[Rfam]
RNA sequence: GGAUGUCUACAUUGAAGGAACUUCUGCUGUGAUCUGAGUUAUCGAUCAUAUCACAGUAGUUGUACUUUAAUGUCGAUAUAU
Numbered sequence: 001g002g003a004u005g006u007c008u009a010c011a012u013u014g015a016a017g018g019a020a021c022u023u024c025u026g027c028u029g030u031g032a033u034c035u036g037a038g039u040u041a042u043c044g045a046u047c048a049u050a051u052c053a054c055a056g057u058a059g060u061u062g063u064a065c066u067u068u069a070a071u072g073u074c075g076a077u078a079u080a081u
Base pairs, nucleotide, nucleotide: 003079004078005077006076007075009073010072011071016067017066018065020063021062024059025058026057028055029054030053031052032051033050035048036047
Record summary
The family of this 81-nucleotide RNA from Anopheles sinensis is "mir-2944 microRNA precursor family". The family has 6 seed sequences and 66 matches in Rfam 15.1. The source organism's lineage runs through Eukaryota, Bilateria, Ecdysozoa, Culicoidea and Myzorhynchus. Its family is annotated with RISC complex and miRNA-mediated post-transcriptional gene silencing in the Gene Ontology. The base pairs follow the family's consensus structure, which was predicted with RNAalifold. The match comes from Rfam's covariance-model search (57 bits).